The family of this 63-nucleotide RNA from Paucibacter sp. KCTC 42545 is "Betaproteobacteria toxic small RNA". Rfam's curators write: Overexpression in amino aid rich medium attenuates growth, suggesting role in repressing amino acid intake and metabolism. Lineage of the source: Bacteria > Pseudomonadota > Burkholderiales > Sphaerotilaceae > Roseateles. A reference for the family is Kimelman et al. (2012), "A vast collection of microbial genes that are toxic to bacteria", Genome Res.
RNA sequence: UGUCUCCUCCACCGCCUCUGGGUGGAUUUCAGGCCUCGGUCCACAAGACCGGGGCCUUUUUUU
Numbered sequence: 001u002g003u004c005u006c007c008u009c010c011a012c013c014g015c016c017u018c019u020g021g022g023u024g025g026a027u028u029u030c031a032g033g034c035c036u037c038g039g040u041c042c043a044c045a046a047g048a049c050c051g052g053g054g055c056c057u058u059u060u061u062u063u
Stems, first nucleotide, its partner, number of pairs: 008026006032056008